Notes: Shown here is a 72-nucleotide RNA sequence from Ramlibacter humi, a member of the family "SAH (S-adenosyl-L-homocysteine) riboswitch aptamer". Rfam 15.1 lists 1,354 matches to the family in 1,132 species. It scores 58 bits against the family's covariance model. Rfam links the family to the GO terms regulation of gene expression and S-adenosylhomocysteine metabolic process.

RNA sequence: CCUGCCAAGGAGCGUUGCAGCGGGCCCGUCGCCCGUCAGGCUUGGCGAGAUCCGCAACGACGCUCACCUCGA
Numbered sequence: 001c002c003u004g005c006c007a008a009g010g011a012g013c014g015u016u017g018c019a020g021c022g023g024g025c026c027c028g029u030c031g032c033c034c035g036u037c038a039g040g041c042u043u044g045g046c047g048a049g050a051u052c053c054g055c056a057a058c059g060a061c062g063c064u065c066a067c068c069u070c071g072a
Base pairs, nucleotide, nucleotide: 003047004046005045006044007043008042021035022034023033024032025031